The record is a 64-nucleotide sequence, which matches "Pestivirus 3' UTR SLI" in Rfam. The family's RNA type in Rfam is cis-regulatory element. The sequence is in the family's curated seed alignment.

RNA sequence: AGCUAAUUGGGAUGUAAAGUAGAGACGUCCUUCAGGAGGACUAUCUACAAUUCCAAGAGGCCCC
Numbered sequence: 001a002g003c004u005a006a007u008u009g010g011g012a013u014g015u016a017a018a019g020u021a022g023a024g025a026c027g028u029c030c031u032u033c034a035g036g037a038g039g040a041c042u043a044u045c046u047a048c049a050a051u052u053c054c055a056a057g058a059g060g061c062c063c064c
Stems, first nucleotide, its partner, number of pairs: 002061003007056007021046003027041005